[Rfam]
RNA: MIR477 microRNA precursor family
RNA sequence: GAAGCUUCCAACCUCCCUCGAAGGCUUCCAAUAUACCAUGCUUCCUCAAAUUGGCCUUGUAAGCAUGGGAAUGUUGGAAACCCUAGGGGGAGGUCGAAAGCUU
Numbered sequence: 001g002a003a004g005c006u007u008c009c010a011a012c013c014u015c016c017c018u019c020g021a022a023g024g025c026u027u028c029c030a031a032u033a034u035a036c037c038a039u040g041c042u043u044c045c046u047c048a049a050a051u052u053g054g055c056c057u058u059g060u061a062a063g064c065a066u067g068g069g070a071a072u073g074u075u076g077g078a079a080a081c082c083c084u085a086g087g088g089g090g091a092g093g094u095c096g097a098a099a100g101c102u103u
Base pairs, nucleotide, nucleotide: 003102004101005100006099009096011094012093013092014091015090016089017088018087019086021084023082024081026079027078028077029076030075031074032073033072